[Rfam]
RNA sequence: CAGGAAUUCCCCGGAGAAGGAACUCCGGGAAAAUAGAAUAAAAAUAAAUUAAGAUAGUAAUAGGAAUGAAUGAAUACGAAU
Numbered sequence: 001c002a003g004g005a006a007u008u009c010c011c012c013g014g015a016g017a018a019g020g021a022a023c024u025c026c027g028g029g030a031a032a033a034u035a036g037a038a039u040a041a042a043a044a045u046a047a048a049u050u051a052a053g054a055u056a057g058u059a060a061u062a063g064g065a066a067u068g069a070a071u072g073a074a075u076a077c078g079a080a081u
Stems, first nucleotide, its partner, number of pairs: 007031002010029007070081002
This 81-nucleotide RNA sequence from Musa balbisiana belongs to the Rfam family "Plastid-rpl20 3UTR RNA". The organism belongs to Musa, within Eukaryota. The family's RNA type in Rfam is cis-regulatory element. A reference for the family is Richter et al. (2023), "Retrograde signaling in plants: A critical review focusing on the GUN pathway and beyond", Plant Commun. Rfam describes the family as follows. Plastid rpl20 is a non-coding RNA (ncRNA) recognised in plastids.